[Rfam]
The family of this 105-nucleotide RNA sequence from Paenibacillus sp. NFR01 is "pan motif". A search with the family's covariance model found it, with a score of 42 bits. By type it is a cis-regulatory element.

RNA sequence: GAGGCGGUAUCGCUCGCGGGCGAACUGUACUCCUGCUUACCUUCAUAACUGCAUUAGACGGUUACGUUGGAUUCUGCUCUGAGCCGUAAGGACCGAGACAGAAGG
Number, nucleotide and partner (000 for none) at each position: 001g032002a031003g030004g028005c027006g026007g025008u024009a000010u023011c022012g021013c020014u000015c000016g000017c000018g000019g000020g013021c012022g011023a010024a008025c007026u006027g005028u004029a000030c003031u002032c001033c000034u000035g000036c000037u000038u000039a000040c000041c000042u000043u000044c000045a000046u000047a000048a000049c000050u000051g000052c000053a000054u000055u000056a000057g000058a000059c000060g000061g000062u000063u000064a000065c000066g000067u000068u000069g000070g000071a000072u000073u000074c101075u100076g099077c097078u096079c095080u000081g093082a000083g000084c091085c090086g000087u000088a000089a000090g085091g084092a000093c081094c000095g079096a078097g077098a000099c076100a075101g074102a000103a000104g000105g000